The family of this 68-nucleotide RNA sequence from Metabacillus arenae is "Bacillaceae-1 RNA". The family's RNA type in Rfam is small RNA. Pairs were carried over by alignment from the consensus structure, which is taken from published work.
[Rfam]
RNA sequence: GAAAAUUGAACACAGACUAUGAGCGCCGCUUUUUGAUGUUUUCGUCUGUGUGACCUGCUUCCUGCAGG
Numbered sequence: 001g002a003a004a005a006u007u008g009a010a011c012a013c014a015g016a017c018u019a020u021g022a023g024c025g026c027c028g029c030u031u032u033u034u035g036a037u038g039u040u041u042u043c044g045u046c047u048g049u050g051u052g053a054c055c056u057g058c059u060u061c062c063u064g065c066a067g068g
Stems, first nucleotide, its partner, number of pairs: 011050007054068005